[Rfam]
RNA sequence: CAUGAUAAGACUAAGAUAGUCUUGGAUUGUAUAGAGGGUAGUCGCAGUCGCCCCAACUCCGACUCUUGCGCAGUACACUGCGCAAGAGUAAGGUGAGAAACAACUUCGGUUGGAAACUUUAAUUUUGUUAAGGAAUUAGAGAACUGU
Numbered sequence: 001c002a003u004g005a006u007a008a009g010a011c012u013a014a015g016a017u018a019g020u021c022u023u024g025g026a027u028u029g030u031a032u033a034g035a036g037g038g039u040a041g042u043c044g045c046a047g048u049c050g051c052c053c054c055a056a057c058u059c060c061g062a063c064u065c066u067u068g069c070g071c072a073g074u075a076c077a078c079u080g081c082g083c084a085a086g087a088g089u090a091a092g093g094u095g096a097g098a099a100a101c102a103a104c105u106u107c108g109g110u111u112g113g114a115a116a117c118u119u120u121a122a123u124u125u126u127g128u129u130a131a132g133g134a135a136u137u138a139g140a141g142a143a144c145u146g147u
Stems, first nucleotide, its partner, number of pairs: 006024007036053004044147004057097003062089012101112004117141009